[Rfam]
RNA sequence: UUGCACUAUGCAUCGAAGGCUAUGUCGAUUACUGUGGCAUAGUCUUUUAGCAAAAAAGUGCAGAAAUAGAGAGCUGUUAAAUCAGCAAGCGGCCAGACAACCGUCGGAAUAGAUCCACAGGUGAAGCAGAGUUUUUCAUCUGCUUUCAGCUACUAAAUCUAUCUUACAAGU
Numbered sequence: 001u002u003g004c005a006c007u008a009u010g011c012a013u014c015g016a017a018g019g020c021u022a023u024g025u026c027g028a029u030u031a032c033u034g035u036g037g038c039a040u041a042g043u044c045u046u047u048u049a050g051c052a053a054a055a056a057a058g059u060g061c062a063g064a065a066a067u068a069g070a071g072a073g074c075u076g077u078u079a080a081a082u083c084a085g086c087a088a089g090c091g092g093c094c095a096g097a098c099a100a101c102c103g104u105c106g107g108a109a110u111a112g113a114u115c116c117a118c119a120g121g122u123g124a125a126g127c128a129g130a131g132u133u134u135u136u137c138a139u140c141u142g143c144u145u146u147c148a149g150c151u152a153c154u155a156a157a158u159c160u161a162u163c164u165u166a167c168a169a170g171u
Stems, first nucleotide, its partner, number of pairs: 002062005009052003013049001015047013106165002109162005123146007
RNA: small nucleolar RNA snoR143
Organism: Capsella rubella